[Rfam]
Source information
The record is a 170-nucleotide RNA from Cohnella pontilimi, which matches "glmS glucosamine-6-phosphate activated ribozyme aptamer" in Rfam. NCBI's taxonomy places the organism under Bacteria, Bacillati, Bacillota, Bacilli, Cohnella. For this family Rfam cites "Evidence for preorganization of the glmS ribozyme ligand binding pocket" (Hampel and Tinsley, Biochemistry, 2006). It scores 85 bits against the family's covariance model.
Nucleotides: 170
Base pairs, nucleotide, nucleotide: 020050021049022048023047024046025045026044027043029041059090060089061088062087063086067079068078069077070076091109092108093107094106095105096104114160115159116158117157118156119155120154128146129145130144133142134141135140
Number, partner (000 for none) and nucleotide at each position: 001000a002000a003000u004000g005000c006000a007000u008000u009000a010000u011000a012000a013000g014000c015000g016000c017000c018000a019000g020050a021049a022048c023047u024046u025045g026044u027043c028000g029041a030000a031000g032000g033000a034000c035000g036000g037000a038000a039000a040000a041029u042000c043027g044026g045025c046024a047023a048022g049021u050020u051000g052000a053000c054000g055000a056000g057000g058000u059090g060089g061088a062087g063086g064000c065000g066000u067079u068078c069077g070076g071000a072000a073000c074000g075000u076070u077069c078068g079067g080000c081000g082000g083000g084000g085000a086063c087062c088061u089060c090059c091109c092108g093107g094106c095105u096104c097000a098000u099000c100000a101000u102000c103000g104096g105095a106094g107093c108092c109091g110000a111000c112000a113000a114160a115159u116158c117157g118156g119155a120154a121000g122000a123000c124000a125000a126000a127000a128146c129145g130144c131000a132000g133142c134141g135140g136000g137000c138000g139000a140135c141134c142133g143000g144130g145129c146128g147000g148000c149000c150000a151000a152000u153000a154120u155119u156118c157117c158116g159115a160114u161000a162000c163000g164000a165000u166000g167000c168000u169000u170000u